Background:
Shown here is a 66-nucleotide RNA from Hyalella azteca, a member of the family "mir-2 microRNA precursor family". The match comes from Rfam's covariance-model search (56 bits). A reference for the family is Ambros (2001), "microRNAs: tiny regulators with great potential", Cell. The organism belongs to Hyalella, within Eukaryota.
[Rfam]
RNA sequence: GCUCUCGUCAGAGUGACUGUGCAAUGCUUUCCUUGUUCAUAUCACAGCCAGCUUUGAUGAGCGCUG
Numbered sequence: 001g002c003u004c005u006c007g008u009c010a011g012a013g014u015g016a017c018u019g020u021g022c023a024a025u026g027c028u029u030u031c032c033u034u035g036u037u038c039a040u041a042u043c044a045c046a047g048c049c050a051g052c053u054u055u056g057a058u059g060a061g062c063g064c065u066g
Stems, first nucleotide, its partner, number of pairs: 005060009014050002017047005025041002